Shown here is a 153-nucleotide RNA from Neohortaea acidophila, a member of the family "Small nucleolar RNA snR80". NCBI's taxonomy places the organism under Eukaryota, Ascomycota, leotiomyceta, dothideomyceta, Neohortaea. The family's consensus secondary structure was predicted with WAR. For this family Rfam cites "Genome-wide searching for pseudouridylation guide snoRNAs: analysis of the Saccharomyces cerevisiae genome" (Schattner et al., Nucleic Acids Res, 2004). Rfam 15.1 lists 447 matches to the family in 358 species. Rfam links the family to the GO terms RNA processing and nucleolus.

RNA sequence: UUCACUUUGCCAACACUCUGGCCUUUACCGCGUCUCCCUGGUUUGGGCCUAUUUUGGUGCAAAGAAGAUUGACGCUUCUAUGACCGCUUACUCACCGCGCUGCCUUUGCCUUCGCGGCUGUGGGCAGAGUGGUCCAUCUUUUCAGGUCCACAU
Numbered sequence: 001u002u003c004a005c006u007u008u009g010c011c012a013a014c015a016c017u018c019u020g021g022c023c024u025u026u027a028c029c030g031c032g033u034c035u036c037c038c039u040g041g042u043u044u045g046g047g048c049c050u051a052u053u054u055u056g057g058u059g060c061a062a063a064g065a066a067g068a069u070u071g072a073c074g075c076u077u078c079u080a081u082g083a084c085c086g087c088u089u090a091c092u093c094a095c096c097g098c099g100c101u102g103c104c105u106u107u108g109c110c111u112u113c114g115c116g117g118c119u120g121u122g123g124g125c126a127g128a129g130u131g132g133u134c135c136a137u138c139u140u141u142u143c144a145g146g147u148c149c150a151c152a153u
Stems, first nucleotide, its partner, number of pairs: 007062003020049005027042003082148004095132004100127003103123002